[Rfam]
RNA sequence: CGCUAUGUUUACUAGGGUUCCGCUGGCGGCGCAGUAUGCCGGGACUGGUCCGAGAGUAAACCGCUUCGGCUUACCGGAGUGACACGGAAGGAUAAAAACCUGGGAGAU
Number, nucleotide and partner (000 for none) at each position: 001c000002g000003c000004u000005a000006u000007g061008u060009u059010u058011a057012c056013u000014a000015g051016g050017g000018u000019u000020c048021c047022g045023c042024u041025g040026g039027c038028g037029g000030c000031g000032c000033a000034g000035u000036a000037u028038g027039c026040c025041g024042g023043g000044a000045c022046u000047g021048g020049u000050c016051c015052g000053a000054g000055a000056g012057u011058a010059a009060a008061c007062c081063g080064c079065u078066u077067c076068g075069g074070c000071u000072u000073a000074c069075c068076g067077g066078a065079g064080u063081g062082a000083c103084a000085c106086g000087g000088a000089a101090g100091g099092a000093u000094a000095a000096a000097a000098a000099c091100c090101u089102g000103g083104g000105a000106g085107a000108u000
RNA: Guanidine-I riboswitch aptamer
Organism: Paenibacillus whitsoniae